[Rfam]
RNA sequence: AAUUAAAAUUUUCAUGCAUUUUUAUUGUUAAAAACUAGCACGUGAUUGAUGAAAUAACUAUACAGUUACACAUAACAUGUUACGUCGACGUACAUGAACUGGUUUUUAACGGUACAAAUAGAUGAAAAUUUUAACU
Number, nucleotide and partner (000 for none) at each position: 001a000002a000003u134004u133005a132006a131007a130008a129009u128010u127011u126012u125013c124014a123015u122016g000017c000018a119019u118020u117021u116022u000023u114024a113025u112026u111027g000028u109029u108030a107031a106032a105033a104034a000035c000036u000037a000038g000039c000040a000041c000042g000043u000044g000045a000046u000047u000048g000049a000050u000051g000052a000053a000054a000055u000056a000057a000058c000059u000060a000061u000062a000063c000064a000065g000066u000067u000068a000069c000070a000071c000072a000073u000074a000075a000076c000077a000078u000079g000080u000081u000082a000083c000084g000085u000086c000087g000088a000089c000090g000091u000092a000093c000094a000095u000096g000097a000098a000099c000100u000101g000102g000103u000104u033105u032106u031107u030108a029109a028110c000111g026112g025113u024114a023115c000116a021117a020118a019119u018120a000121g000122a015123u014124g013125a012126a011127a010128a009129u008130u007131u006132u005133a004134a003135c000136u000

This 136-nucleotide RNA from Gossypium arboreum belongs to the Rfam family "MIR7502 microRNA precursor family". The match comes from Rfam's covariance-model search (80 bits). NCBI's taxonomy places the organism under Eukaryota, Viridiplantae, Spermatophyta, Malvoideae, Gossypium.